[Rfam]
Bacterial large subunit ribosomal RNA: a 360-nucleotide part of an RNA from an uncultured bacterium. The sequence is in the family's curated seed alignment. The base pairs follow the family's consensus structure, which is taken from published work.
RNA sequence: CGAGAUAUCUCUCCCUAAGGAACUAGGCAAAAUGACUCCGUAACUUCGGGAUAAGGAGUGCCGGAUAUGUGUAGCGAUUUACUCGCGAAGCAUUGAAGGUCACAGUAAAGAGGCCUGGGUGACUGUUUAGUAAAAACUCAUCACUCUGCAAAGUCGCAAGACGACGUAUAGGGUGUGACACCUGCCCGGUGCUGGAAGGUUAAGGGAAAAGGUUAGCCGCAAGGCGAAGCUUUGAACCGAAGCCCCAGUAAACGGCGGCCGUAACUAUAACGGUCCUAAGGUAGCGAAAUUCCUUGUGGGGUAAGUUCCCACGCGCACGAAUGGUGUAACAACUUGGGCGCUGUCUCGGGGAGGGCCUCG
Numbered sequence: 001c002g003a004g005a006u007a008u009c010u011c012u013c014c015c016u017a018a019g020g021a022a023c024u025a026g027g028c029a030a031a032a033u034g035a036c037u038c039c040g041u042a043a044c045u046u047c048g049g050g051a052u053a054a055g056g057a058g059u060g061c062c063g064g065a066u067a068u069g070u071g072u073a074g075c076g077a078u079u080u081a082c083u084c085g086c087g088a089a090g091c092a093u094u095g096a097a098g099g100u101c102a103c104a105g106u107a108a109a110g111a112g113g114c115c116u117g118g119g120u121g122a123c124u125g126u127u128u129a130g131u132a133a134a135a136a137c138u139c140a141u142c143a144c145u146c147u148g149c150a151a152a153g154u155c156g157c158a159a160g161a162c163g164a165c166g167u168a169u170a171g172g173g174u175g176u177g178a179c180a181c182c183u184g185c186c187c188g189g190u191g192c193u194g195g196a197a198g199g200u201u202a203a204g205g206g207a208a209a210a211g212g213u214u215a216g217c218c219g220c221a222a223g224g225c226g227a228a229g230c231u232u233u234g235a236a237c238c239g240a241a242g243c244c245c246c247a248g249u250a251a252a253c254g255g256c257g258g259c260c261g262u263a264a265c266u267a268u269a270a271c272g273g274u275c276c277u278a279a280g281g282u283a284g285c286g287a288a289a290u291u292c293c294u295u296g297u298g299g300g301g302u303a304a305g306u307u308c309c310c311a312c313g314c315g316c317a318c319g320a321a322u323g324g325u326g327u328a329a330c331a332a333c334u335u336g337g338g339c340g341c342u343g344u345c346u347c348g349g350g351g352a353g354g355g356c357c358u359c360g
Base pairs, nucleotide, nucleotide: 001360002359003358004357009355010354011353012352013351014350015349016348018346019345020344035059036058037057038056039055044049060100061099062098072088074086075085076084077083101105113339114338115337116336117335118334119333120331121330125137126136142175143174144173145172146171147170148169149166153162154161155160179326180325181324182323184256185255186254189253190252191249192248193247194246195245198244199243200242204238205237209233210232211231212230213229216225217224257275258274259273260272261271262270276280296312297311298310299309300308301307